[Rfam]
RNA sequence: CGAGUAAGCCAGACAGUCGCUGCUGUGGAAACACAGGAGAGGAAAGUCCGAGCUCCGUAGGGCAGGGUGCUGGGUAAUACCCAGUCAGGGUGACCUGAAGGAAAGUGCAACAGAGAUAUACCGCCUAUUUUAUAUAGGUAAGGGUGGAAAGGCGAGGUAAGAGCUCACCAGCGCAUAGGCGACUAUGCGGCUAUGUAAACCCCAUCUGGAGCAAGAUCGAAUAGGGAAGCAUUAUGGGAUUGCCCGUCCCGCUUCCGGGUGUAUCGCUUGAGCCUAUUGGUAACGAUAGGCCUAGAUAGAUGACUGUUUAAUACAGAACUCGGCUUACAGACUUGCUCGUACC
Dot-bracket structure: ((((((((.(.(((((((.((.(((((....))))).))....[[[.[[[[[((((...[[[[.((((((((((.....)))))(((((....)))).)((...(((((...........((((((((.....))))))..)).......((.(((.......))).)).((((((((....))))))).)..)))..)))))))))))))...(((.......((((((.....(((((.]]]])))))))))))......)))......((((((((....))))))))..........)))))))..........]]]]]]]]...).))))))))....
Numbered sequence: 001c002g003a004g005u006a007a008g009c010c011a012g013a014c015a016g017u018c019g020c021u022g023c024u025g026u027g028g029a030a031a032c033a034c035a036g037g038a039g040a041g042g043a044a045a046g047u048c049c050g051a052g053c054u055c056c057g058u059a060g061g062g063c064a065g066g067g068u069g070c071u072g073g074g075u076a077a078u079a080c081c082c083a084g085u086c087a088g089g090g091u092g093a094c095c096u097g098a099a100g101g102a103a104a105g106u107g108c109a110a111c112a113g114a115g116a117u118a119u120a121c122c123g124c125c126u127a128u129u130u131u132a133u134a135u136a137g138g139u140a141a142g143g144g145u146g147g148a149a150a151g152g153c154g155a156g157g158u159a160a161g162a163g164c165u166c167a168c169c170a171g172c173g174c175a176u177a178g179g180c181g182a183c184u185a186u187g188c189g190g191c192u193a194u195g196u197a198a199a200c201c202c203c204a205u206c207u208g209g210a211g212c213a214a215g216a217u218c219g220a221a222u223a224g225g226g227a228a229g230c231a232u233u234a235u236g237g238g239a240u241u242g243c244c245c246g247u248c249c250c251g252c253u254u255c256c257g258g259g260u261g262u263a264u265c266g267c268u269u270g271a272g273c274c275u276a277u278u279g280g281u282a283a284c285g286a287u288a289g290g291c292c293u294a295g296a297u298a299g300a301u302g303a304c305u306g307u308u309u310a311a312u313a314c315a316g317a318a319c320u321c322g323g324c325u326u327a328c329a330g331a332c333u334u335g336c337u338c339g340u341a342c343c
Stems, first nucleotide, its partner, number of pairs: 001339008010330001012308007020039002023036005044326003048323005053211004060245004065207005070084005085099001086097004100202002105200002107196003121143002123139006151169002154166003171191001172189007215265003225256006236250005272291008